[Rfam]
RNA sequence: AUGGAUGAUAGAGGCGCGGCAUUUAAGAGUACCUCUGCAGAGGUAAGCACGAUGAAGCACAGGGAAAGGAAAUGCCGCCGAAGUGUACACCCGACGCUUUAAGGGUGUAUGCUGGGCCUGCACAGAAUAUGUGCAGGACUGUCACAAAUAUCAUCAAAUUGUGGAGAGCUAUCAUUCAA
Numbered sequence: 001a002u003g004g005a006u007g008a009u010a011g012a013g014g015c016g017c018g019g020c021a022u023u024u025a026a027g028a029g030u031a032c033c034u035c036u037g038c039a040g041a042g043g044u045a046a047g048c049a050c051g052a053u054g055a056a057g058c059a060c061a062g063g064g065a066a067a068g069g070a071a072a073u074g075c076c077g078c079c080g081a082a083g084u085g086u087a088c089a090c091c092c093g094a095c096g097c098u099u100u101a102a103g104g105g106u107g108u109a110u111g112c113u114g115g116g117c118c119u120g121c122a123c124a125g126a127a128u129a130u131g132u133g134c135a136g137g138a139c140u141g142u143c144a145c146a147a148a149u150a151u152c153a154u155c156a157a158a159u160u161g162u163g164g165a166g167a168g169c170u171a172u173c174a175u176u177c178a179a
Stems, first nucleotide, its partner, number of pairs: 006174006016078009032063003036059003082113011114140002117137008142164006
RNA: Lysine riboswitch aptamer
Organism: Thermacetogenium phaeum